[Rfam]
Notes
The record is a 128-nucleotide RNA sequence, which matches "drum RNA" in Rfam. Rfam classes the family as a small RNA. Firmicutes, Bacteroidetes (1 example), Proteobacteria (2 examples), Spirochaetes (2 examples).
RNA sequence: AAGCUAUGAUGUCAUAUUUCCGGGGCAAUUUCGGUAGUAUGACGGAGCUUUUGUUGAGGGUUAGGAGAUUUCCACAGAUUGCCUAGGGGUCUACCUCGUAGGAGACUACCGAAAGAAAAUCUCCAUCU
Numbered sequence: 001a002a003g004c005u006a007u008g009a010u011g012u013c014a015u016a017u018u019u020c021c022g023g024g025g026c027a028a029u030u031u032c033g034g035u036a037g038u039a040u041g042a043c044g045g046a047g048c049u050u051u052u053g054u055u056g057a058g059g060g061u062u063a064g065g066a067g068a069u070u071u072c073c074a075c076a077g078a079u080u081g082c083c084u085a086g087g088g089g090u091c092u093a094c095c096u097c098g099u100a101g102g103a104g105a106c107u108a109c110c111g112a113a114a115g116a117a118a119a120u121c122u123c124c125a126u127c128u
Stems, first nucleotide, its partner, number of pairs: 001050004011043006018037002020034003025082004065123003086110002088107005
Dot-bracket structure: ((((......((((((.(((((..[[[[...))).))))))))...))))..............(((...........]]]]...(((((((..........))))).))..........))).....